[Rfam]
The family of this 65-nucleotide sequence from Cricetulus griseus is "mir-344 microRNA precursor family". A reference for the family is Chiang et al. (2010), "Mammalian microRNAs: experimental evaluation of novel and previously annotated genes", Genes Dev.

RNA sequence: UUUCCAGCCAGGCUCCUGGCUAAAGUCCAGCUCUUAGCUGGAUUUGGGCCAAGCUUGGCUGAAAA
Numbered sequence: 001u002u003u004c005c006a007g008c009c010a011g012g013c014u015c016c017u018g019g020c021u022a023a024a025g026u027c028c029a030g031c032u033c034u035u036a037g038c039u040g041g042a043u044u045u046g047g048g049c050c051a052a053g054c055u056u057g058g059c060u061g062a063a064a065a
Stems, first nucleotide, its partner, number of pairs: 007059003011055004017051004021046004027041005

Lineage of the source: Eukaryota > Eumetazoa > Vertebrata > Dipnotetrapodomorpha > Cricetulus.